[Rfam]
RNA sequence: AAGAAUAACCUGUUAAGCUCAGGAGGGAUAGCGCCAUGGAGCCGAUCUGGGCAUGACUUGAUGGAGAUCGAUGUUCUUCAUCCUCUUAAUUUCUCUAUCUCCAUUGCGCUAUCUAUCCUGAGUUUCAUGGGUUCUUCGU
Numbered sequence: 001a002a003g004a005a006u007a008a009c010c011u012g013u014u015a016a017g018c019u020c021a022g023g024a025g026g027g028a029u030a031g032c033g034c035c036a037u038g039g040a041g042c043c044g045a046u047c048u049g050g051g052c053a054u055g056a057c058u059u060g061a062u063g064g065a066g067a068u069c070g071a072u073g074u075u076c077u078u079c080a081u082c083c084u085c086u087u088a089a090u091u092u093c094u095c096u097a098u099c100u101c102c103a104u105u106g107c108g109c110u111a112u113c114u115a116u117c118c119u120g121a122g123u124u125u126c127a128u129g130g131g132u133u134c135u136u137c138g139u
Base pairs, nucleotide, nucleotide: 010130016124017123018122019121020120021119022118023117024116026114027113028112029111030110031109032108033107034106
This 139-nucleotide sequence from Rhododendron simsii belongs to the Rfam family "MIR390 microRNA precursor family". The organism belongs to Rhododendron, within Eukaryota. On this family, see Gustafson et al., Nucleic Acids Res 2005: "ASRP: the Arabidopsis Small RNA Project Database". The match comes from Rfam's covariance-model search (87 bits). Gene Ontology terms of the family: miRNA-mediated post-transcriptional gene silencing and RISC complex.